Shown here is a 340-nucleotide sequence from Peltaster fructicola, a member of the family "Nuclear RNase P".
The literature on the family includes a 1998 paper in Annu Rev Biochem by Frank and Pace, "Ribonuclease P: unity and diversity in a tRNA processing ribozyme".
Ribonuclease P (RNase P) is a ubiquitous endoribonuclease, found in archaea, bacteria and eukarya as well as chloroplasts and mitochondria.
[Rfam]
Nucleotides: 340
Stems, first nucleotide, its partner, number of pairs: 001340004007334003012277007022070004036054005041048001080324005089230004145156004159171004173226003178222004194212005278312006
Number, partner (000 for none) and nucleotide at each position: 001340u002339c003338c004337u005000c006000a007334c008333c009332a010000a011000u012277g013276c014275u015274g016273c017272g018271u019000u020000u021000c022070u023069u024068u025067g026000c027000u028000c029000u030000c031000a032000c033000a034000c035000a036054g037053a038052c039051a040050g041048a042000c043000g044000u045000u046000g047000c048041u049000c050040u051039u052038g053037u054036c055000a056000u057000c058000a059000u060000c061000a062000u063000c064000a065000a066000g067025c068024a069023a070022a071000u072000g073000a074000g075000a076000a077000a078000u079000u080324c081323g082322g083321a084320g085000u086000a087000a088000u089230c090229u091228u092227c093000a094000c095000a096000a097000c098000c099000c100000g101000u102000c103000c104000a105000c106000c107000u108000c109000g110000a111000a112000g113000u114000c115000c116000c117000u118000c119000c120000u121000u122000g123000g124000a125000u126000a127000c128000u129000g130000c131000g132000a133000g134000c135000u136000c137000u138000g139000a140000c141000g142000a143000c144000u145156g146155c147154c148153u149000g150000u151000a152000a153148g154147g155146g156145u157000c158000u159171g160170c161169c162168a163000u164000g165000a166000c167000a168162u169161g170160g171159u172000u173226g174225c175224a176000u177000u178222c179221g180220a181219c182000a183000u184000c185000a186000g187000a188000a189000a190000u191000c192000u193000c194212a195211g196210c197209c198208u199000a200000a201000u202000c203000a204000c205000u206000u207000u208198g209197g210196g211195c212194u213000a214000u215000g216000g217000g218000a219181g220180u221179c222178g223000g224175u225174g226173c227092g228091a229090a230089g231000a232000u233000u234000g235000u236000c237000u238000g239000u240000c241000u242000c243000u244000u245000g246000a247000c248000u249000g250000a251000g252000a253000u254000g255000a256000g257000a258000a259000c260000u261000u262000u263000a264000g265000u266000g267000c268000a269000a270000u271018a272017c273016g274015c275014a276013g277012c278312a279311u280310a281309u282308c283307u284000a285000a286000g287000c288000a289000u290000g291000u292000u293000u294000u295000g296000c297000a298000a299000a300000a301000c302000u303000g304000c305000a306000a307283g308282g309281g310280u311279a312278u313000c314000a315000u316000u317000c318000g319000a320084u321083u322082c323081u324080g325000a326000u327000u328000a329000c330000u331000c332009u333008g334007g335000u336000g337004a338003g339002g340001a